[Rfam]
RNA sequence: UGAGACUUGAGAGGAGCUGCUCCUAGUACGAGAGGACCGGAGUGGACGUUCCUCUGGUGUUCCGGUUGUCACGCCAGUGGCAUUGCCGGGUAGCUAAGAACGGAAGGGAUAACCGCUGAAAGCAUCUAAGCGGGAAGCCCCCCUCAAGAUGAGGUCUCACCAGUGACUUGAUCACUCUAAAGGGCCGUUGAAGACUACAACGUUGAUAGGCUGGGUGUGGAAGUGCAGUAAUGUAUGAAGCUAACCAGUACUAAUUGCCCGUGAG
Numbered sequence: 001u002g003a004g005a006c007u008u009g010a011g012a013g014g015a016g017c018u019g020c021u022c023c024u025a026g027u028a029c030g031a032g033a034g035g036a037c038c039g040g041a042g043u044g045g046a047c048g049u050u051c052c053u054c055u056g057g058u059g060u061u062c063c064g065g066u067u068g069u070c071a072c073g074c075c076a077g078u079g080g081c082a083u084u085g086c087c088g089g090g091u092a093g094c095u096a097a098g099a100a101c102g103g104a105a106g107g108g109a110u111a112a113c114c115g116c117u118g119a120a121a122g123c124a125u126c127u128a129a130g131c132g133g134g135a136a137g138c139c140c141c142c143c144u145c146a147a148g149a150u151g152a153g154g155u156c157u158c159a160c161c162a163g164u165g166a167c168u169u170g171a172u173c174a175c176u177c178u179a180a181a182g183g184g185c186c187g188u189u190g191a192a193g194a195c196u197a198c199a200a201c202g203u204u205g206a207u208a209g210g211c212u213g214g215g216u217g218u219g220g221a222a223g224u225g226c227a228g229u230a231a232u233g234u235a236u237g238a239a240g241c242u243a244a245c246c247a248g249u250a251c252u253a254a255u256u257g258c259c260c261g262u263g264a265g
Stems, first nucleotide, its partner, number of pairs: 001159008011145004017045007047102005055096003062089005067082006106140003113133005162176005179262001182260004186202005207253003210249005217241001223236005
The record is a 265-nucleotide part of an RNA from Thiohalophilus thiocyanatoxydans, which matches "Bacterial large subunit ribosomal RNA" in Rfam. Taxonomically the source falls in Thiohalophilus (Bacteria, Pseudomonadati, Thiohalomonadales, Thiohalophilaceae). The match comes from Rfam's covariance-model search (2894 bits). A reference for the family is Yusupov et al. (2001), "Crystal structure of the ribosome at 5.5 A resolution", Science.